[Rfam]
RNA sequence: CUGGCACGGUAAGCGGUCGCUUUUGCAUCUUGCAAAAGAGGAAAGUCCGAGCUGCGAUAAGACAAAGUUCCAUCUAACGGAUGGCUAGGGAAACCUAAGGGAUAGUGUAACAGAAAGCAAACUUCCGCCUUGGCGGUAAAGGUGAAAUGGCGGGGUAAGAGCCCACCGGCACGCUUGGUAACUUGCGUGGCCAUAUAAACCCAACUUGCAGUAAGAAGGGAUGGUUUUGGUCUUAUAUUAAAACCCUUCGCUAGAGCUUGUUUGUAAAAGCAAGCGUAGAUAAAUGAUCGCUCAAGACAGAACUCGGCUUAACGCCGUGCCUCCCUU
Numbered sequence: 001c002u003g004g005c006a007c008g009g010u011a012a013g014c015g016g017u018c019g020c021u022u023u024u025g026c027a028u029c030u031u032g033c034a035a036a037a038g039a040g041g042a043a044a045g046u047c048c049g050a051g052c053u054g055c056g057a058u059a060a061g062a063c064a065a066a067g068u069u070c071c072a073u074c075u076a077a078c079g080g081a082u083g084g085c086u087a088g089g090g091a092a093a094c095c096u097a098a099g100g101g102a103u104a105g106u107g108u109a110a111c112a113g114a115a116a117g118c119a120a121a122c123u124u125c126c127g128c129c130u131u132g133g134c135g136g137u138a139a140a141g142g143u144g145a146a147a148u149g150g151c152g153g154g155g156u157a158a159g160a161g162c163c164c165a166c167c168g169g170c171a172c173g174c175u176u177g178g179u180a181a182c183u184u185g186c187g188u189g190g191c192c193a194u195a196u197a198a199a200c201c202c203a204a205c206u207u208g209c210a211g212u213a214a215g216a217a218g219g220g221a222u223g224g225u226u227u228u229g230g231u232c233u234u235a236u237a238u239u240a241a242a243a244c245c246c247u248u249c250g251c252u253a254g255a256g257c258u259u260g261u262u263u264g265u266a267a268a269a270g271c272a273a274g275c276g277u278a279g280a281u282a283a284a285u286g287a288u289c290g291c292u293c294a295a296g297a298c299a300g301a302a303c304u305c306g307g308c309u310u311a312a313c314g315c316c317g318u319g320c321c322u323c324c325c326u327u
Stems, first nucleotide, its partner, number of pairs: 003321008012292007020038008043310003047307005052211004060236001062234001065207005070084005085099001086097004100202002105200002107196003122141002125136004149167002152164003169191001170189005177182001215249004223245006256275008
Rfam assigns this 327-nucleotide RNA sequence from Campylobacter concisus to the family "Bacterial RNase P class A". The sequence is in the family's curated seed alignment. It is annotated as a ribozyme. The source organism's lineage runs through Bacteria, Pseudomonadati, Campylobacterales, Campylobacteraceae and Campylobacter concisus.